[Rfam]
A member of the RNA family "Selenocysteine insertion sequence 1" from Closterium sp. NIES-68, 67 nucleotides long. From the family's description: The incorporation of selenocysteine into a protein sequence is directed by an in-frame UGA codon (usually a stop codon) within the coding region of the mRNA. Selenoprotein mRNAs contain a conserved secondary structure in the 3' UTR that is required for the distinction of UGA stop from UGA selenocysteine. The selenocysteine insertion sequence (SECIS) is around 60 nt in length and adopts a hairpin structure which is sufficiently well-defined and conserved to act as a computational screen for selenoprotein genes. NCBI's taxonomy places the organism under Eukaryota, Streptophyta, Desmidiales, Closteriaceae, Closterium peracerosum-strigosum-littorale complex.

RNA sequence: GAGGGUGCAUAUGACGGCUGUGGCUUAAACCCCACAUGGGGCAGCUGCAGCCUGAACAGUCACUCUC
Numbered sequence: 001g002a003g004g005g006u007g008c009a010u011a012u013g014a015c016g017g018c019u020g021u022g023g024c025u026u027a028a029a030c031c032c033c034a035c036a037u038g039g040g041g042c043a044g045c046u047g048c049a050g051c052c053u054g055a056a057c058a059g060u061c062a063c064u065c066u067c
Stems, first nucleotide, its partner, number of pairs: 001067005016052010031041003